This 99-nucleotide sequence from Lactiplantibacillus plantarum belongs to the Rfam family "Purine riboswitch aptamer".
The match comes from Rfam's covariance-model search (68 bits).
RNA sequence: UUCAAAUAAGUGGUAAUUGCCUAUAUAAUGUCAUGAUAUGGUUGACGAGUUUCUACCCAACCCCGUAAAGGUUGGACUAUAAGCAAACGAGGUCAUCCC
Numbered sequence: 001u002u003c004a005a006a007u008a009a010g011u012g013g014u015a016a017u018u019g020c021c022u023a024u025a026u027a028a029u030g031u032c033a034u035g036a037u038a039u040g041g042u043u044g045a046c047g048a049g050u051u052u053c054u055a056c057c058c059a060a061c062c063c064c065g066u067a068a069a070g071g072u073u074g075g076a077c078u079a080u081a082a083g084c085a086a087a088c089g090a091g092g093u094c095a096u097c098c099c
Base pairs, nucleotide, nucleotide: 018085019084020083022081023080024079025078029047030046031045032044033043057075058074059073060072061071062070